[Rfam]
RNA sequence: CUGUGUCUUGCUUCAACAGUGUUUGGAUGGGACUC
Number, nucleotide and partner (000 for none) at each position: 001c000002u000003g033004u032005g000006u031007c030008u029009u000010g028011c000012u027013u026014c025015a024016a023017c021018a000019g000020u000021g017022u000023u016024u015025g014026g013027a012028u010029g008030g007031g006032a004033c003034u000035c000